[Rfam]
RNA: Fluoride riboswitch aptamer (crcB RNA motif)
RNA sequence: UACAUAAUAGGUGAUGGAGUUCACCUUUAAACACUGACAUUAGAAUUCUUUUAGAGAUUCUAUUUAUCGAAUGCAGUUAAUGACUCCUAUAAAACA
Numbered sequence: 001u002a003c004a005u006a007a008u009a010g011g012u013g014a015u016g017g018a019g020u021u022c023a024c025c026u027u028u029a030a031a032c033a034c035u036g037a038c039a040u041u042a043g044a045a046u047u048c049u050u051u052u053a054g055a056g057a058u059u060c061u062a063u064u065u066a067u068c069g070a071a072u073g074c075a076g077u078u079a080a081u082g083a084c085u086c087c088u089a090u091a092a093a094a095c096a
Stems, first nucleotide, its partner, number of pairs: 010025004016087006033077004